The family of this 69-nucleotide sequence from Conger conger is "mir-30 microRNA precursor family". Rfam describes the family as follows. This family consists of the mammalian microRNA (miRNA) precursor mir-30a. Animal miRNAs are transcribed as ~70nt precursors and subsequently processed by the Dicer enzyme to give a ~22nt product. In this case the mature sequence comes from both the 3' (miR-30) and 5' (mir-97-6) arms of the precursor. The extents of the hairpin precursors are not generally known and are estimated based on hairpin prediction. The products are thought to have regulatory roles through complementarity to mRNA. The involvement of Dicer in miRNA processing suggests a relationship with the phenomenon of RNA interference. miRNAs are numbered based on the sequence of the mature RNA. Rfam 15.1 lists 3,879 matches to the family in 647 species. The family's consensus secondary structure was predicted with PFOLD. Lineage of the source: Eukaryota > Metazoa > Deuterostomia > Congridae > Conger. The match comes from Rfam's covariance-model search (55 bits). Its family is annotated with RISC complex and gene silencing by miRNA in the Gene Ontology.
RNA sequence: UGCGGUGUAAACAUCCUACACUCUCAGCUGUGACAUCAUGGAGCUGGGAGAGGGGUGUUUACGCUCUUU
Dot-bracket structure: .(..(((((((((((((...(((((((((............))))))))).)))))))))))))..)..